[Rfam]
Overview: This 213-nucleotide RNA sequence from Halobacteriovorax sp. DA5 belongs to the Rfam family "Lysine riboswitch aptamer". NCBI's taxonomy places the organism under Bacteria, Bdellovibrionota, Bacteriovoracia, Bacteriovoracales, Halobacteriovorax.
RNA sequence: UUCAAUUGAAGAGGCGCAGUGUUCAGAGCGUGUUGAUAAGGAUGCACAACUAUAUUAGUCCGUUAUCAGUCAACACAAUGGGUUCAUUGCCGAAAUAAGAUCAGAGUGUGCAACUUAUCUUAUUGGUUACUAAGGGAGAAGCCUUAGGACUGUCAUAUAGUAAAUUUUAAUUAACGAAAUUAGGAUUUAGUUAUGUGGAGAGCUUCAAAUGCA
Numbered sequence: 001u002u003c004a005a006u007u008g009a010a011g012a013g014g015c016g017c018a019g020u021g022u023u024c025a026g027a028g029c030g031u032g033u034u035g036a037u038a039a040g041g042a043u044g045c046a047c048a049a050c051u052a053u054a055u056u057a058g059u060c061c062g063u064u065a066u067c068a069g070u071c072a073a074c075a076c077a078a079u080g081g082g083u084u085c086a087u088u089g090c091c092g093a094a095a096u097a098a099g100a101u102c103a104g105a106g107u108g109u110g111c112a113a114c115u116u117a118u119c120u121u122a123u124u125g126g127u128u129a130c131u132a133a134g135g136g137a138g139a140a141g142c143c144u145u146a147g148g149a150c151u152g153u154c155a156u157a158u159a160g161u162a163a164a165u166u167u168u169a170a171u172u173a174a175c176g177a178a179a180u181u182a183g184g185a186u187u188u189a190g191u192u193a194u195g196u197g198g199a200g201a202g203c204u205u206c207a208a209a210u211g212c213a
Base pairs, nucleotide, nucleotide: 006208007207008206009205010204011203016090017089018088019087020086021085024082031075032074033073034072035071036070037069094124095123096122097121098120099119100118101117103115104114125151126150127149128148130147131146132145133144134143135142153198154197155196156195157194158193159192160191161190